[Rfam]
RNA sequence: GGGAUUAAGGGAACCGCUGCAUUUGCAGAGGAAAGUCCGGACUCCUUCGGAAACGAUGCCGGCUAACGGCCGGGGAACGGAAAUUAAAGUUUCCGUUUACAGACAGUGCAACAGAAAGUAAACCGCCGCAUUUUGCGGUAAGGGUGAAAGGGCGGGGUAAGAGCCCACCGCGUUUUCGGUAACGGAAACGGCAAUGUAAACCUCAUCGGGAGCAAGGUUAAGCAGUAAAGAAUCUCCGAUUCUUAAUUUACGGGUUAACCGCGAUAAAAACUUGCUGUAAAGCGGGUUUAAGAAAGAUGGUUCCGUCUGUUUUACAGAAACAGAAUCCGGCUUAUUAAUCCCUUUU
Numbered sequence: 001g002g003g004a005u006u007a008a009g010g011g012a013a014c015c016g017c018u019g020c021a022u023u024u025g026c027a028g029a030g031g032a033a034a035g036u037c038c039g040g041a042c043u044c045c046u047u048c049g050g051a052a053a054c055g056a057u058g059c060c061g062g063c064u065a066a067c068g069g070c071c072g073g074g075g076a077a078c079g080g081a082a083a084u085u086a087a088a089g090u091u092u093c094c095g096u097u098u099a100c101a102g103a104c105a106g107u108g109c110a111a112c113a114g115a116a117a118g119u120a121a122a123c124c125g126c127c128g129c130a131u132u133u134u135g136c137g138g139u140a141a142g143g144g145u146g147a148a149a150g151g152g153c154g155g156g157g158u159a160a161g162a163g164c165c166c167a168c169c170g171c172g173u174u175u176u177c178g179g180u181a182a183c184g185g186a187a188a189c190g191g192c193a194a195u196g197u198a199a200a201c202c203u204c205a206u207c208g209g210g211a212g213c214a215a216g217g218u219u220a221a222g223c224a225g226u227a228a229a230g231a232a233u234c235u236c237c238g239a240u241u242c243u244u245a246a247u248u249u250a251c252g253g254g255u256u257a258a259c260c261g262c263g264a265u266a267a268a269a270a271c272u273u274g275c276u277g278u279a280a281a282g283c284g285g286g287u288u289u290a291a292g293a294a295a296g297a298u299g300g301u302u303c304c305g306u307c308u309g310u311u312u313u314a315c316a317g318a319a320a321c322a323g324a325a326u327c328c329g330g331c332u333u334a335u336u337a338a339u340c341c342c343u344u345u346u
Base pairs, nucleotide, nucleotide: 001342002341003340004339005338006337007336008335010304011303012302013301014300015299017028018027019026020025033333034332035331037330038329039328040327041326042212043211044210045209050237052235054208055207056206057205058204059073060072061071062070063069074100075098076097077096078095079094080093081092082091083090084089101203102202106201107200108197109196110195123143124142125139126138127137128136129135130134151169152168154166155165156164170192171190172189173188174187175186176185177184178183216260217259218258219257225251226250227249228248229243230242231241232240233239269288270287271286272285273284274283275282276281